[Rfam]
Aggregatibacter sRNA 41: a 193-nucleotide RNA from Hymenobacter ginkgonis. It is annotated as a small RNA. Rfam describes the family as follows. Validated by RT-PCR, expression up-regulated during growth. The base pairs follow the family's consensus structure, which was predicted with RNAfold. Lineage of the source: Bacteria > Bacteroidota > Cytophagia > Cytophagales > Hymenobacter. It scores 97 bits against the family's covariance model.
RNA sequence: UUUGAACGUCAUGCUGAGCUUGUCGAAGCAUCUUUACCGCUUCGUAUGAGCUAGUGCAACGAAGCGGUAGCGAUGCUUCGACAAGCUCAGCAUGACGACCUGGCGACUUCCUAAAUAGCUUCUAUAUUUCGUGCCAGUGAACAAGUCGAAACUGUACAAGAGAAGCCCCGGAAGCUAUUGCCUCCGGGGCUUU
Numbered sequence: 001u002u003u004g005a006a007c008g009u010c011a012u013g014c015u016g017a018g019c020u021u022g023u024c025g026a027a028g029c030a031u032c033u034u035u036a037c038c039g040c041u042u043c044g045u046a047u048g049a050g051c052u053a054g055u056g057c058a059a060c061g062a063a064g065c066g067g068u069a070g071c072g073a074u075g076c077u078u079c080g081a082c083a084a085g086c087u088c089a090g091c092a093u094g095a096c097g098a099c100c101u102g103g104c105g106a107c108u109u110c111c112u113a114a115a116u117a118g119c120u121u122c123u124a125u126a127u128u129u130c131g132u133g134c135c136a137g138u139g140a141a142c143a144a145g146u147c148g149a150a151a152c153u154g155u156a157c158a159a160g161a162g163a164a165g166c167c168c169c170g171g172a173a174g175c176u177a178u179u180g181c182c183u184c185c186g187g188g189g190c191u192u193u
Stems, first nucleotide, its partner, number of pairs: 001151003007097007015089013029075004102146001166189007174181002